[Rfam]
RNA sequence: CCUGGCCGUUAAGCCUGUCCAUUGCGGAAGGCUGAAUUUAUCUCGCUGAUUUCAGGAGCUUUAUUAUGCGUA
Numbered sequence: 001c002c003u004g005g006c007c008g009u010u011a012a013g014c015c016u017g018u019c020c021a022u023u024g025c026g027g028a029a030g031g032c033u034g035a036a037u038u039u040a041u042c043u044c045g046c047u048g049a050u051u052u053c054a055g056g057a058g059c060u061u062u063a064u065u066a067u068g069c070g071u072a
Stems, first nucleotide, its partner, number of pairs: 012033005018028003042058003046055003

The record is a 72-nucleotide RNA from Shimwellia blattae, which matches "Repression of heat shock gene expression (ROSE) element" in Rfam. Its family is annotated with response to temperature stimulus and regulation of translation in the Gene Ontology. This family represents a 5' UTR cis-regulatory element found in heat shock mRNAs and is known as the ROSE (repression of heat shock gene expression) element. The ROSE element is a negative regulator of heat shock gene expression. The family's consensus secondary structure is taken from published work. The family's RNA type in Rfam is RNA thermoregulator.